The record is a 106-nucleotide RNA sequence from Rhododendron simsii, which matches "Small nucleolar RNA snoR100" in Rfam.

[Rfam]
RNA sequence: UGAGGUAGGAAGCAUGGUAAUGUGUAGAAAUUAAAUUGGGUCUUUAGUCAUGUCCUCUCUGAUGCUAUUUAGCUUUGAUUAGUGGGCAUGGUUCUGCAACGAAACA
Numbered sequence: 001u002g003a004g005g006u007a008g009g010a011a012g013c014a015u016g017g018u019a020a021u022g023u024g025u026a027g028a029a030a031u032u033a034a035a036u037u038g039g040g041u042c043u044u045u046a047g048u049c050a051u052g053u054c055c056u057c058u059c060u061g062a063u064g065c066u067a068u069u070u071a072g073c074u075u076u077g078a079u080u081a082g083u084g085g086g087c088a089u090g091g092u093u094c095u096g097c098a099a100c101g102a103a104a105c106a
Base pairs, nucleotide, nucleotide: 012025013024014023015022038089040087041086042085047079048078049077052073053072
NCBI's taxonomy places the organism under Eukaryota, Streptophyta, Tracheophyta, Spermatophyta, Rhododendron.